[Rfam]
RNA sequence: ACGCCUGAUGGUAAAACUAUAUUAAUUUCACCAUAAUUACCAUAAAAAAAUAUCAAAAGGGAAUUAUGGUAUAAU
Numbered sequence: 001a002c003g004c005c006u007g008a009u010g011g012u013a014a015a016a017c018u019a020u021a022u023u024a025a026u027u028u029c030a031c032c033a034u035a036a037u038u039a040c041c042a043u044a045a046a047a048a049a050a051u052a053u054c055a056a057a058a059g060g061g062a063a064u065u066a067u068g069g070u071a072u073a074a075u
Base pairs, nucleotide, nucleotide: 030070031069032068033067034066035065036064037063